[Rfam]
RNA sequence: GAGUUAGUGAUGUGUGGCGAGGUUAACCCGGGUGGGGUAGCCGUAGCGAAAGCGAGUCCUAAGAGGGCGUUGGAGUCGCAUGUCCUAGACCCGAAGCGGAGUGAUCUACCCAUGGCCAGGGUGAAGCGCGGGUAAGACCGUGUGGAGGCCCGAACCCACCAGGGUUGAAAACCUGGGGGAUGAGCUGUGGGUAGGGGUGAAAGGCCAGUCAAACUCCGUGAUAGCUGGUU
Numbered sequence: 001g002a003g004u005u006a007g008u009g010a011u012g013u014g015u016g017g018c019g020a021g022g023u024u025a026a027c028c029c030g031g032g033u034g035g036g037g038u039a040g041c042c043g044u045a046g047c048g049a050a051a052g053c054g055a056g057u058c059c060u061a062a063g064a065g066g067g068c069g070u071u072g073g074a075g076u077c078g079c080a081u082g083u084c085c086u087a088g089a090c091c092c093g094a095a096g097c098g099g100a101g102u103g104a105u106c107u108a109c110c111c112a113u114g115g116c117c118a119g120g121g122u123g124a125a126g127c128g129c130g131g132g133u134a135a136g137a138c139c140g141u142g143u144g145g146a147g148g149c150c151c152g153a154a155c156c157c158a159c160c161a162g163g164g165u166u167g168a169a170a171a172c173c174u175g176g177g178g179g180a181u182g183a184g185c186u187g188u189g190g191g192u193a194g195g196g197g198u199g200a201a202a203g204g205c206c207a208g209u210c211a212a213a214c215u216c217c218g219u220g221a222u223a224g225c226u227g228g229u230u
Base pairs, nucleotide, nucleotide: 005087006086007085009084010083011082012081013080014079015078016077017076018075021042022041023040024039027036028035029034046053047052056068057067058066059065090228091227093225097218098217099216100215101214102213106194107193108192109191110190111189112188113187114186115185116184117182119151120150121149122148126143127142128141129140130139131138155179156178157177159176160175161174162173163172196206197205198204